Rfam assigns this 491-nucleotide part of an RNA from Catagonus wagneri to the family "Eukaryotic small subunit ribosomal RNA". On this family, see Cannone et al., BMC Bioinformatics 2002: "The comparative RNA web (CRW) site: an online database of comparative sequence and structure information for ribosomal, intron, and other RNAs". The organism belongs to Catagonus, within Eukaryota.

RNA sequence: UGAUGGAAGGGCACCACCAGGAGUGGAGCCUGUGGCUUAAUUUGACUCAAAAUGGGAAACUUUGCCUGGACACGGACAGGAUUGACAGAUUGAAGCUCUUUCUCGAUUCUGUGGGUGGUGGUGCAUGGCUGUUAUUAGUUGGUGGAGCGAUUUGUCUGGUUGAUUCCGAUAAUGAAUGAGACGCUGGCAUGCCAGCUAGUUAUAUGACCCCUGAGAGGUUGGUGUCCCCCAGCUUCUUAGGGGGACAAGUGGUGUUCAGCCACCCGAGAUUGAGCAAUGACAGGUCUGUGAUGCCCUUAGAUGUCCGGGGCUGCAUGCACGCUACACAGUGGCUCAGCGUGUGCCUACCCUAUGCUGGGAGGCACAGGUAACCCGUUUGAACACCAUCUGUGAUGGGGAUCAGGGAUUGCAAUUAUUCCCCAUGAACGAGGAAUUCCCAGUAAGUGCGGGUCAUAAGCUUGCGUUGAUUAAGUCCCUGCCCUUUGUACACA
Number, nucleotide and partner (000 for none) at each position: 001u489002g488003a486004u485005g484006g000007a483008a482009g481010g480011g479012c478013a477014c000015c000016a473017c472018c000019a000020g437021g436022a435023g434024u433025g325026g000027a323028g322029c321030c000031u319032g318033u317034g316035g314036c313037u000038u000039a000040a000041u056042u055043u054044g053045a000046c000047u000048c000049a000050a000051a000052a000053u044054g043055g042056g041057a000058a000059a000060c000061u000062u000063u000064g000065c309066c308067u307068g306069g305070a000071c113072a112073c111074g110075g109076a000077c000078a000079g000080g000081a000082u000083u000084g102085a101086c000087a099088g098089a097090u000091u000092g000093a000094a000095g000096c000097u089098c088099u087100u000101u085102c084103u000104c000105g000106a000107u000108u000109c075110u074111g073112u072113g071114g000115g000116u000117g297118g296119u000120g295121g294122u293123g292124c000125a000126u291127g289128g285129c284130u283131g281132u280133u279134a278135u000136u000137a000138g177139u176140u175141g000142g173143u172144g153145g152146a151147g000148c000149g000150a000151u146152u145153u144154g000155u000156c000157u168158g167159g166160u000161u000162g000163a000164u000165u000166c159167c158168g157169a000170u000171a000172a143173u142174g000175a140176a139177u138178g000179a000180g000181a000182c000183g000184c272185u000186g270187g000188c243189a000190u241191g000192c240193c000194a238195g237196c000197u000198a234199g233200u232201u231202a000203u000204a000205u000206g000207a000208c000209c000210c000211c000212u000213g000214a000215g000216a000217g000218g000219u000220u000221g000222g000223u000224g000225u000226c000227c000228c000229c000230c000231a201232g200233c199234u198235u000236c000237u195238u194239a000240g192241g190242g000243g188244g000245a000246c266247a000248a000249g263250u262251g261252g260253u259254g000255u000256u000257c000258a000259g253260c252261c251262a250263c249264c000265c000266g246267a000268g000269a000270u186271u000272g184273a000274g000275c000276a000277a000278u134279g133280a132281c131282a000283g130284g129285u128286c000287u000288g000289u127290g000291a126292u123293g122294c121295c120296c118297u117298u000299a000300g000301a000302u000303g000304u000305c069306c068307g067308g066309g065310g000311c000312u000313g036314c035315a000316u034317g033318c032319a031320c000321g029322c028323u027324a000325c025326a000327c000328a000329g387330u386331g385332g384333c000334u000335c000336a000337g000338c000339g376340u375341g374342u000343g000344c000345c000346u000347a000348c000349c368350c367351u000352a000353u364354g363355c362356u361357g000358g000359g000360a000361g356362g355363c354364a353365c000366a000367g350368g349369u000370a000371a000372c000373c000374c341375g340376u339377u000378u000379g000380a000381a000382c000383a000384c332385c331386a330387u329388c000389u000390g000391u000392g000393a000394u000395g000396g427397g000398g000399a000400u000401c000402a000403g420404g419405g418406a417407u000408u000409g000410c000411a000412a000413u000414u000415a000416u000417u406418c405419c404420c403421c000422a000423u000424g000425a000426a000427c396428g000429a000430g000431g000432a000433a024434u023435u022436c021437c020438c000439a000440g000441u000442a000443a465444g464445u463446g462447c461448g460449g459450g458451u000452c000453a000454u000455a000456a000457g000458c450459u449460u448461g447462c446463g445464u444465u443466g000467a000468u000469u000470a000471a000472g017473u016474c000475c000476c000477u013478g012479c011480c010481c009482u008483u007484u005485g004486u003487a000488c002489a001490c000491a000
Rfam links the family to the GO terms structural constituent of ribosome and ribosome.